[Rfam]
RNA: mir-166 microRNA precursor family
RNA sequence: UUUGAGAGGAAUGUUGGCUGGCUCGAUGCGCUGGGCUUUGAAAUUAUAGUGAGAUCAAAGUGAAGGUAUAUCGGACCAGGCUUCAUUCCCCUCAAA
Numbered sequence: 001u002u003u004g005a006g007a008g009g010a011a012u013g014u015u016g017g018c019u020g021g022c023u024c025g026a027u028g029c030g031c032u033g034g035g036c037u038u039u040g041a042a043a044u045u046a047u048a049g050u051g052a053g054a055u056c057a058a059a060g061u062g063a064a065g066g067u068a069u070a071u072c073g074g075a076c077c078a079g080g081c082u083u084c085a086u087u088c089c090c091c092u093c094a095a096a
Stems, first nucleotide, its partner, number of pairs: 001096006008089006016081001018079004024073005